[Rfam]
RNA sequence: UUAACUCAAUUUUGUAUGGACUUGGAACAGCGCCUCUAGUGGCAAACGUAGGCAAACGUUCCGACUCCAUACAAAUUUUAAGUUA
Numbered sequence: 001u002u003a004a005c006u007c008a009a010u011u012u013u014g015u016a017u018g019g020a021c022u023u024g025g026a027a028c029a030g031c032g033c034c035u036c037u038a039g040u041g042g043c044a045a046a047c048g049u050a051g052g053c054a055a056a057c058g059u060u061c062c063g064a065c066u067c068c069a070u071a072c073a074a075a076u077u078u079u080a081a082g083u084u085a
Stems, first nucleotide, its partner, number of pairs: 008078002011075006018068001020066001022064007034052002039047002
RNA: mir-2807 microRNA precursor family
Organism: Bombyx mori